Rfam assigns this 52-nucleotide RNA sequence to the family "serC leader". The family's RNA type in Rfam is cis-regulatory leader. From the family's description: This family is a putative regulatory RNA structure that is found upstream of the serC-serA operon in some alpha-proteobacteria. The final stem of the structure overlaps the ribosome binding site of the serC reading frame. Rfam's curators put it in the seed alignment.
RNA sequence: CAGUGGGUCACGCCUCCCCAACGAGGCGCAACUAUCUGAGAGGGUAGAGACA
Number, nucleotide and partner (000 for none) at each position: 001c000002a000003g000004u000005g000006g000007g000008u000009c000010a000011c028012g027013c026014c025015u024016c023017c000018c000019c000020a000021a000022c000023g016024a015025g014026g013027c012028g011029c000030a000031a000032c047033u046034a045035u044036c043037u042038g000039a000040g000041a000042g037043g036044g035045u034046a033047g032048a000049g000050a000051c000052a000